[Rfam]
RNA sequence: AUCCACGUGCAUGGGCUUAACACAUCGCAGUGUGGAGAUCAUCCGGGCGUGUGUUAUUGCUAGUUGUAAACUACACCGACCUGCUUCCAUCAAGAUUUGGCUUUGAUAGAGAAUUUUCGGAACAUAACGUCUCAG
Numbered sequence: 001a002u003c004c005a006c007g008u009g010c011a012u013g014g015g016c017u018u019a020a021c022a023c024a025u026c027g028c029a030g031u032g033u034g035g036a037g038a039u040c041a042u043c044c045g046g047g048c049g050u051g052u053g054u055u056a057u058u059g060c061u062a063g064u065u066g067u068a069a070a071c072u073a074c075a076c077c078g079a080c081c082u083g084c085u086u087c088c089a090u091c092a093a094g095a096u097u098u099g100g101c102u103u104u105g106a107u108a109g110a111g112a113a114u115u116u117u118c119g120g121a122a123c124a125u126a127a128c129g130u131c132u133c134a135g
Stems, first nucleotide, its partner, number of pairs: 020054005026049003034044003085111003089107006096100001
Source information
Rfam assigns this 135-nucleotide RNA sequence from Rhynchosporium graminicola to the family "U4 spliceosomal RNA". U4 small nuclear RNA (U4 snRNA) is a component of the major U2-dependent spliceosome. Its Rfam clan is "U4 clan". Lineage of the source: Eukaryota > Opisthokonta > Pezizomycotina > leotiomyceta > Rhynchosporium.